[Rfam]
Nucleotides: 085
Base pairs, nucleotide, nucleotide: 003053007049008048009047010046011045012044015041016040017073018072019071020070026037027036028035029034063079064078065077066076
Number, partner (000 for none) and nucleotide at each position: 001000u002000g003053u004000a005000c006000g007049c008048g009047u010046c011045g012044u013000g014000a015041c016040u017073g018072g019071c020070g021000a022000a023000c024000a025000g026037g027036u028035g029034g030000g031000a032000a033000a034029c035028c036027a037026c038000c039000g040016g041015g042000a043000a044012g045011c046010g047009a048008u049007g050000a051000c052000c053003a054000g055000a056000c057000a058000u059000u060000u061000c062000u063079a064078g065077c066076c067000g068000c069000c070020c071019g072018c073017c074000u075000g076066g077065g078064c079063u080000c081000g082000g083000a084000u085000g
Rfam assigns this 85-nucleotide sequence from Schaalia zhouxuedongae to the family "ZMP/ZTP riboswitch aptamer (pfl RNA motif)". The family's consensus secondary structure is taken from published work. The source organism's lineage runs through Bacteria, Actinomycetota, Actinomycetes, Actinomycetales and Schaalia. A search with the family's covariance model found it, with a score of 56 bits.